Record summary:
Shown here is a 58-nucleotide RNA sequence from Niveispirillum lacus, a member of the family "terC RNA". A search with the family's covariance model found it, with a score of 53 bits. NCBI's taxonomy places the organism under Bacteria, Pseudomonadati, Alphaproteobacteria, Rhodospirillales, Niveispirillum.

[Rfam]
RNA sequence: AGCGCCAUCCGGGCCCCUCUGGCAGCCAAGGCGUUGGCUGCGAUGUCGGAUAGAACCC
Numbered sequence: 001a002g003c004g005c006c007a008u009c010c011g012g013g014c015c016c017c018u019c020u021g022g023c024a025g026c027c028a029a030g031g032c033g034u035u036g037g038c039u040g041c042g043a044u045g046u047c048g049g050a051u052a053g054a055a056c057c058c
Stems, first nucleotide, its partner, number of pairs: 007051006022041008